Shown here is a 111-nucleotide RNA sequence from Streptomyces dangxiongensis, a member of the family "SAM (S-adenosyl methionine) riboswitch aptamer".
It scores 99 bits against the family's covariance model.
The source organism's lineage runs through Bacteria, Bacillati, Actinomycetes, Streptomycetaceae and Streptomyces.
Gene Ontology terms of the family: S-adenosylmethionine metabolic process and regulation of gene expression.
The family has 40 seed sequences and 2,360 matches in Rfam 15.1.

RNA sequence: GGUCAUGAGCGUCAGCGCCAAGCCCUGGCUCGCUGACCGGCAACCCUCGCACCGCGGUGGGGUGCCCCAGGUGACGACCGGACCGGACGACGUUUUCGGUAAGCGCGAGGC
Numbered sequence: 001g002g003u004c005a006u007g008a009g010c011g012u013c014a015g016c017g018c019c020a021a022g023c024c025c026u027g028g029c030u031c032g033c034u035g036a037c038c039g040g041c042a043a044c045c046c047u048c049g050c051a052c053c054g055c056g057g058u059g060g061g062g063u064g065c066c067c068c069a070g071g072u073g074a075c076g077a078c079c080g081g082a083c084c085g086g087a088c089g090a091c092g093u094u095u096u097c098g099g100u101a102a103g104c105g106c107g108a109g110g111c
Base pairs, nucleotide, nucleotide: 001079002078003077004076009038011037012036013035014034015033016032021030022029039066040065041064044062045061046060048057082100083099084098085097086096087095088092